[Rfam]
Source information:
The record is a 103-nucleotide RNA from Clostridium acetobutylicum, which matches "TPP riboswitch aptamer (THI element)" in Rfam. The base pairs follow the family's consensus structure, which is taken from published work. The match comes from Rfam's covariance-model search (75 bits). Taxonomically the source falls in Clostridium acetobutylicum (Bacteria, Clostridia, Clostridiaceae, Clostridium).
RNA sequence: UUUUAGUGCUAGGGGUGCCUUUUGGCUGAGAGAAGUUAAAAAACUUUAACCCUUUGAACCUGAUUCGGUUAAUUCUGACGAAGGAAAGCUUUUUAAAUGAUUA
Numbered sequence: 001u002u003u004u005a006g007u008g009c010u011a012g013g014g015g016u017g018c019c020u021u022u023u024g025g026c027u028g029a030g031a032g033a034a035g036u037u038a039a040a041a042a043a044c045u046u047u048a049a050c051c052c053u054u055u056g057a058a059c060c061u062g063a064u065u066c067g068g069u070u071a072a073u074u075c076u077g078a079c080g081a082a083g084g085a086a087a088g089c090u091u092u093u094u095a096a097a098u099g100a101u102u103a
Stems, first nucleotide, its partner, number of pairs: 006091001008089003011053004017026003033046005059084003065078004